[Rfam]
RNA sequence: ACCCUCUACAAAGGCAUGUCUUUUGUUCCCUGCCAUUGGACCUGUAAGAAUUAAAGGCAAAGAAAUGUGAACUUGGAGAAAUCUCGGGCCAGCUUGCACUCUAUGGGCUCAAGAUCAACCAUACUACAUAG
Numbered sequence: 001a002c003c004c005u006c007u008a009c010a011a012a013g014g015c016a017u018g019u020c021u022u023u024u025g026u027u028c029c030c031u032g033c034c035a036u037u038g039g040a041c042c043u044g045u046a047a048g049a050a051u052u053a054a055a056g057g058c059a060a061a062g063a064a065a066u067g068u069g070a071a072c073u074u075g076g077a078g079a080a081a082u083c084u085c086g087g088g089c090c091a092g093c094u095u096g097c098a099c100u101c102u103a104u105g106g107g108c109u110c111a112a113g114a115u116c117a118a119c120c121a122u123a124c125u126a127c128a129u130a131g
Base pairs, nucleotide, nucleotide: 002057003056005054015044016043018041019040020039021038025029069124071122073121091109092108093107094106095105096104